[Rfam]
RNA sequence: UAGGUCGAGAGGCGCUGCAACGGACCCGAGGGUCCGCCACGCUCGGCCUGCCAUGUAACGGUAAGGGCGCCUCCCGAUA
Numbered sequence: 001u002a003g004g005u006c007g008a009g010a011g012g013c014g015c016u017g018c019a020a021c022g023g024a025c026c027c028g029a030g031g032g033u034c035c036g037c038c039a040c041g042c043u044c045g046g047c048c049u050g051c052c053a054u055g056u057a058a059c060g061g062u063a064a065g066g067g068c069g070c071c072u073c074c075c076g077a078u079a
Stems, first nucleotide, its partner, number of pairs: 002049007021036006